The record is a 167-nucleotide RNA sequence from Butyrivibrio hungatei, which matches "Clostridiales-1 RNA" in Rfam.
[Rfam]
RNA sequence: UGAUAUAAGCGUCAUAAUACAUAAUGCUUACAUGCUUGCAUGAUAAGCAUUAUGUAUUGAUGACCUGAACAAACAUGAGGAAAAAAGCAAUUUACGAAGUAAAUAGCGAUUUCCGAAUGUUUGCAGGAUUGCGAGAGUUUCGCAGAAACGUAGCAAUCCGUAUAUCA
Numbered sequence: 001u002g003a004u005a006u007a008a009g010c011g012u013c014a015u016a017a018u019a020c021a022u023a024a025u026g027c028u029u030a031c032a033u034g035c036u037u038g039c040a041u042g043a044u045a046a047g048c049a050u051u052a053u054g055u056a057u058u059g060a061u062g063a064c065c066u067g068a069a070c071a072a073a074c075a076u077g078a079g080g081a082a083a084a085a086a087g088c089a090a091u092u093u094a095c096g097a098a099g100u101a102a103a104u105a106g107c108g109a110u111u112u113c114c115g116a117a118u119g120u121u122u123g124c125a126g127g128a129u130u131g132c133g134a135g136a137g138u139u140u141c142g143c144a145g146a147a148a149c150g151u152a153g154c155a156a157u158c159c160g161u162a163u164a165u166c167a
Stems, first nucleotide, its partner, number of pairs: 001167007011064004017057013031042004070123007079114004087107002090104006126159007137149004
Dot-bracket structure: (((((((...((((..(((((((((((((.((((....))))..)))))))))))))...)))).....(((((((..((((....((.((((((...)))))).))...))))..)))))))..(((((((....((((.....))))...))))))).)))))))
Source information:
The source organism's lineage runs through Bacteria, Bacillati, Clostridia, Lachnospirales and Butyrivibrio. Rfam classes the family as a small RNA.